[Rfam]
This 166-nucleotide RNA from Paenibacillus dendrobii belongs to the Rfam family "FMN riboswitch aptamer (RFN element)". A search with the family's covariance model found it, with a score of 112 bits.

Nucleotides: 166
Stems, first nucleotide, its partner, number of pairs: 004163007017029003031146002033136002035080004075134002084111006116132005138149003
Number, partner (000 for none) and nucleotide at each position: 001000a002000u003000g004163g005162a006161u007160c008159u009158u010157c011000g012000g013000g014000g015000u016000a017029a018028g019027g020000u021000g022000a023000a024000a025000u026000u027019c028018c029017u030000g031146a032145c033136c034135g035080g036079c037078g038077g039000u040000g041000a042000a043000c044000g045000u046000c047000c048000u049000u050000u051000g052000c053000a054000a055000c056000u057000c058000u059000u060000g061000c062000a063000g064000a065000c066000a067000g068000a069000c070000g071000u072000c073000a074000a075134g076133c077038c078037c079036g080035c081000g082000a083000c084111u085110c086109g087108c088107u089106g090000u091000u092000u093000u094000g095000a096000a097000g098000u099000a100000u101000u102000g103000a104000a105000g106089c107088a108087g109086c110085g111084a112000c113000u114000g115000a116132c117131c118130u119129g120128g121000u122000g123000a124000g125000a126000u127000u128120c129119c130118a131117g132116g133076g134075c135034c136033g137000a138149c139148g140147g141000u142000a143000a144000a145032g146031u147140c148139c149138g150000g151000a152000u153000g154000g155000g156000a157010g158009a159008a160007g161006a162005u163004c164000a165000a166000a
From the family's description: The RFN element is a highly conserved domain that is found frequently in the 5'-untranslated regions of prokaryotic mRNAs that encode for flavin mononucleotide (FMN) biosynthesis and transport proteins. This element is a metabolite-dependent riboswitch that directly binds FMN in the absence of proteins.